Description: The family of this 109-nucleotide sequence from Sorghum bicolor is "MIR5565 microRNA precursor family". The source organism's lineage runs through Eukaryota, Mesangiospermae, Poales, Sorghinae and Sorghum. The base pairs follow the family's consensus structure, which was predicted with RNAalifold. Its family is annotated with RISC complex and miRNA-mediated post-transcriptional gene silencing in the Gene Ontology.

RNA sequence: GUUAUCGGAUUCACCUCAAUCCAUAUAUGUUGGAGUGGAUUGGGGUGGAAUUUAGUUCAAGUUCCACUCCAACCCACCCCAAUAUACAUGGAUUGAUGUGAAUCCGACU
Numbered sequence: 001g002u003u004a005u006c007g008g009a010u011u012c013a014c015c016u017c018a019a020u021c022c023a024u025a026u027a028u029g030u031u032g033g034a035g036u037g038g039a040u041u042g043g044g045g046u047g048g049a050a051u052u053u054a055g056u057u058c059a060a061g062u063u064c065c066a067c068u069c070c071a072a073c074c075c076a077c078c079c080c081a082a083u084a085u086a087c088a089u090g091g092a093u094u095g096a097u098g099u100g101a102a103u104c105c106g107a108c109u
Base pairs, nucleotide, nucleotide: 005107006106007105008104009103010102011101012100013099014098016096017095018094019093020092021091022090023089024088026086027085028084029083030082031081032080035077036076037075038074040072041071042070043069045067046066047065
Dot-bracket structure: ....((((((((((.(((((((((.(((((((..((((.((((.(((.................))).)))).))))..))))))).))))))))).))))))))))..